[Rfam]
RNA sequence: CCCUUUGAAGUCGGCGUCGGGGAUGCCUAUAUUCCCGGUGCCGGCUUGCCGGCUAUGGCGAUAAACGAUGCGUGGAAUAAGCGUUGUGGACCCGGGGGCAGUGCCCGGCGCCUCCACCAAUACUCCGGCGUGCCGGAGUCGCGGGGGCGAAACAGGCUCGACACGCGUGGUAAAGACCCAUCUUUUGCUCGGCAUGGUUCCGCCGUUAUCGGGCCGUAUCACAAGUGCCAACGAUAACAACGUGGUGCUCGCUGCCGCUGCAUAAGCGGUAAGCGCGGUUCGAGGGGGCACCGGGCAACAGAAGCCCCCUCA
Numbered sequence: 001c002c003c004u005u006u007g008a009a010g011u012c013g014g015c016g017u018c019g020g021g022g023a024u025g026c027c028u029a030u031a032u033u034c035c036c037g038g039u040g041c042c043g044g045c046u047u048g049c050c051g052g053c054u055a056u057g058g059c060g061a062u063a064a065a066c067g068a069u070g071c072g073u074g075g076a077a078u079a080a081g082c083g084u085u086g087u088g089g090a091c092c093c094g095g096g097g098g099c100a101g102u103g104c105c106c107g108g109c110g111c112c113u114c115c116a117c118c119a120a121u122a123c124u125c126c127g128g129c130g131u132g133c134c135g136g137a138g139u140c141g142c143g144g145g146g147g148c149g150a151a152a153c154a155g156g157c158u159c160g161a162c163a164c165g166c167g168u169g170g171u172a173a174a175g176a177c178c179c180a181u182c183u184u185u186u187g188c189u190c191g192g193c194a195u196g197g198u199u200c201c202g203c204c205g206u207u208a209u210c211g212g213g214c215c216g217u218a219u220c221a222c223a224a225g226u227g228c229c230a231a232c233g234a235u236a237a238c239a240a241c242g243u244g245g246u247g248c249u250c251g252c253u254g255c256c257g258c259u260g261c262a263u264a265a266g267c268g269g270u271a272a273g274c275g276c277g278g279u280u281c282g283a284g285g286g287g288g289c290a291c292c293g294g295g296c297a298a299c300a301g302a303a304g305c306c307c308c309c310u311c312a
Base pairs, nucleotide, nucleotide: 040053041052042051043050044049057189058188059187060186061185067182068181069180070179072177073176082167083166084165086164087163088162092108093107094106095105096104109149110148111147112146113145114144115143190205191204192203193202195216196215197214199213200212201211276293277292278291279290284309285308286307287306288305289304

Alphaproteobacteria transfer-messenger RNA: a 312-nucleotide sequence from Limobrevibacterium gyesilva. The organism belongs to Limobrevibacterium, within Bacteria. Rfam links the family to the GO term RNA catabolic process. The match comes from Rfam's covariance-model search (262 bits).